[Rfam]
RNA: Fluoride riboswitch aptamer (crcB RNA motif)
RNA sequence: AUAGAUUUGGGGAAUGAAGUGCUCCCUUGUUAUUAACUAAAACGCAAAAAUUUUGCUGAUGACUUCUGUUUUUUA
Numbered sequence: 001a002u003a004g005a006u007u008u009g010g011g012g013a014a015u016g017a018a019g020u021g022c023u024c025c026c027u028u029g030u031u032a033u034u035a036a037c038u039a040a041a042a043c044g045c046a047a048a049a050a051u052u053u054u055g056c057u058g059a060u061g062a063c064u065u066c067u068g069u070u071u072u073u074u075a
Base pairs, nucleotide, nucleotide: 010025011024012023016066017065018064019063020062044056045055046054047053